Rfam assigns this 66-nucleotide sequence to the family "GP20-b RNA".
RNA sequence: CGUUGAUUUUAGGCGUAAAAUGAAAUCGAAAAUCACUUAUGAGAGGCAACCUCGUAUAAAAGCGUA
Numbered sequence: 001c002g003u004u005g006a007u008u009u010u011a012g013g014c015g016u017a018a019a020a021u022g023a024a025a026u027c028g029a030a031a032a033u034c035a036c037u038u039a040u041g042a043g044a045g046g047c048a049a050c051c052u053c054g055u056a057u058a059a060a061a062g063c064g065u066a
Stems, first nucleotide, its partner, number of pairs: 001015004007025005040054004